[Rfam]
RNA: Mammalian CPEB3 ribozyme
Organism: Alligator mississippiensis
RNA sequence: AGAGGUUGCAAGGUCAAGGCCAUAGCAGAAGUGCUCAUGGUAGAGCCCUGUCAGAUUCAAAUGAAUCUGCAAAUUCUGUU
Numbered sequence: 001a002g003a004g005g006u007u008g009c010a011a012g013g014u015c016a017a018g019g020c021c022a023u024a025g026c027a028g029a030a031g032u033g034c035u036c037a038u039g040g041u042a043g044a045g046c047c048c049u050g051u052c053a054g055a056u057u058c059a060a061a062u063g064a065a066u067c068u069g070c071a072a073a074u075u076c077u078g079u080u
Stems, first nucleotide, its partner, number of pairs: 013048001018047003024080007032042002052069007
Dot-bracket structure: ............[....[[[...(((((((.((.......))..]]]]...(((((((....)))))))....)))))))